[Rfam]
RNA: Small nucleolar RNA Z279/snoR105/snoR108
Organism: Microthlaspi erraticum
Nucleotides: 105
Base pairs, nucleotide, nucleotide: 001105002104003103004102014096015095016094024040027037028036043082044081045080046079047078048077049076061075063073064072
Number, partner (000 for none) and nucleotide at each position: 001105g002104g003103g004102a005000a006000a007000u008000g009000a010000g011000g012000a013000a014096u015095g016094g017000g018000c019000u020000u021000a022000a023000u024040c025000u026000u027037g028036c029000a030000u031000a032000a033000a034000u035000u036028g037027c038000u039000u040024g041000a042000a043082g044081a045080g046079u047078g048077u049076u050000c051000c052000g053000c054000u055000c056000a057000a058000a059000g060000c061075c062000u063073g064072u065000u066000a067000c068000g069000a070000c071000a072064a073063u074000u075061g076049g077048g078047c079046a080045c081044u082043c083000c084000a085000a086000u087000u088000c089000u090000c091000u092000u093000a094016u095015c096014a097000u098000c099000u100000g101000a102004u103003c104002c105001c